The family of this 74-nucleotide RNA sequence from Crocodylus porosus is "Mammalian CPEB3 ribozyme". A reference for the family is Salehi-Ashtiani et al. (2006), "A genomewide search for ribozymes reveals an HDV-like sequence in the human CPEB3 gene", Science.

RNA sequence: AAUUACUAGUUUGAGACCAUAACAGAAGUGUUUAUGGUGUAGCCUGUCAGAUUCCAAUGAAUCUGAAUUCUGCU
Numbered sequence: 001a002a003u004u005a006c007u008a009g010u011u012u013g014a015g016a017c018c019a020u021a022a023c024a025g026a027a028g029u030g031u032u033u034a035u036g037g038u039g040u041a042g043c044c045u046g047u048c049a050g051a052u053u054c055c056a057a058u059g060a061a062u063c064u065g066a067a068u069u070c071u072g073c074u
Stems, first nucleotide, its partner, number of pairs: 015044001017042001021074001023072005028040003048065007